A member of the RNA family "R2 RNA element" from Cyphomyrmex costatus, 226 nucleotides long. The literature on the family includes a 2004 paper in RNA by Ruschak et al., "Secondary structure models of the 3' untranslated regions of diverse R2 RNAs". From the family's description: This family represents the 3' UTR region of the R2 retrotransposable element. This family is known to interact with the R2-encoded reverse transcriptase in a reaction known as target primed reverse transcription (TPRT). A search with the family's covariance model found it, with a score of 58 bits.
RNA sequence: CAAUAGAUAAAAUUAUACAUAGAAGAUGAGCAUCCCCGAAAGUAAUAUGGGAGUGAUAUUCGAUGGGUGCUCAUUUACUUGAUCUUUUAAGAUAAUCAAUAGGGAGGGGGUUUUAGUCGGUAGGCGAGACAUUGUAUCUUUGCGAUGCAAAUAUCAUCGAAUCCGGCACUCCCUAGGGUACGGGCCUUAGGGAGUCUUUUGAAGAUUUCCCCCUACCCUCGUAAAA
Numbered sequence: 001c002a003a004u005a006g007a008u009a010a011a012a013u014u015a016u017a018c019a020u021a022g023a024a025g026a027u028g029a030g031c032a033u034c035c036c037c038g039a040a041a042g043u044a045a046u047a048u049g050g051g052a053g054u055g056a057u058a059u060u061c062g063a064u065g066g067g068u069g070c071u072c073a074u075u076u077a078c079u080u081g082a083u084c085u086u087u088u089a090a091g092a093u094a095a096u097c098a099a100u101a102g103g104g105a106g107g108g109g110g111u112u113u114u115a116g117u118c119g120g121u122a123g124g125c126g127a128g129a130c131a132u133u134g135u136a137u138c139u140u141u142g143c144g145a146u147g148c149a150a151a152u153a154u155c156a157u158c159g160a161a162u163c164c165g166g167c168a169c170u171c172c173c174u175a176g177g178g179u180a181c182g183g184g185c186c187u188u189a190g191g192g193a194g195u196c197u198u199u200u201g202a203a204g205a206u207u208u209c210c211c212c213c214u215a216c217c218c219u220c221g222u223a224a225a226a
Stems, first nucleotide, its partner, number of pairs: 074225005101219004106213003116167005125159003133149005169194006